[Rfam]
RNA sequence: GGCUUUUAAAAGCCGAAUCGUACAGCUUAAUUAUGUGUACGUACGGGGGACUAAGCACUUGGGGUGAAUGCUUGCAGGCUGCACGGCUGCGCUAGGGAACAACCUCUUCCCGAACCCGACAACUAACCUCGGAGGCAAAAACAGGAGGGAAC
Numbered sequence: 001g002g003c004u005u006u007u008a009a010a011a012g013c014c015g016a017a018u019c020g021u022a023c024a025g026c027u028u029a030a031u032u033a034u035g036u037g038u039a040c041g042u043a044c045g046g047g048g049g050a051c052u053a054a055g056c057a058c059u060u061g062g063g064g065u066g067a068a069u070g071c072u073u074g075c076a077g078g079c080u081g082c083a084c085g086g087c088u089g090c091g092c093u094a095g096g097g098a099a100c101a102a103c104c105u106c107u108u109c110c111c112g113a114a115c116c117c118g119a120c121a122a123c124u125a126a127c128c129u130c131g132g133a134g135g136c137a138a139a140a141a142c143a144g145g146a147g148g149g150a151a152c
Stems, first nucleotide, its partner, number of pairs: 012136003019041006044131005052061002062117003070092002073089001095111004

A member of the RNA family "c-di-AMP riboswitch aptamer (ydaO/yuaA leader)" from Paenibacillus naphthalenovorans, 152 nucleotides long. The organism belongs to Paenibacillus, within Bacteria. This family represents a conserved RNA structure found upstream of the ydaO and yuaA genes in Bacillus subtilis and related genes in other bacteria. The ydaO/yuaA element is thought to act as a genetic 'off' switch for the ydaO and yuaA genes in its native state. It is believed that the element may be triggered during osmotic shock leading to activation of ydaO, a predicted amino acid transporter gene, and members of the yuaA-yubG operon which code for KtrA and KtrB K+ transporters.